[Rfam]
RNA: Hepatitis C virus J7880 RNA
Organism: Orthohepacivirus hominis
RNA sequence: AUGAAGGCAAAGGCGUCCACAGUCAAGGCCAAACUUCUAUCCGUGGAAGAAGCCUGCAAGCUGACGCCCCCACAUUCGGCCAGAUCUAAAUUUGGCUAUGGGGCGAAGGACGUCCGGAACCUA
Numbered sequence: 001a002u003g004a005a006g007g008c009a010a011a012g013g014c015g016u017c018c019a020c021a022g023u024c025a026a027g028g029c030c031a032a033a034c035u036u037c038u039a040u041c042c043g044u045g046g047a048a049g050a051a052g053c054c055u056g057c058a059a060g061c062u063g064a065c066g067c068c069c070c071c072a073c074a075u076u077c078g079g080c081c082a083g084a085u086c087u088a089a090a091u092u093u094g095g096c097u098a099u100g101g102g103g104c105g106a107a108g109g110a111c112g113u114c115c116g117g118a119a120c121c122u123a
Base pairs, nucleotide, nucleotide: 006120012114013113014112015111016110017109018108022065023064024063025062028057029056035050036049038047068103069102070101071100074097076095077094078092079091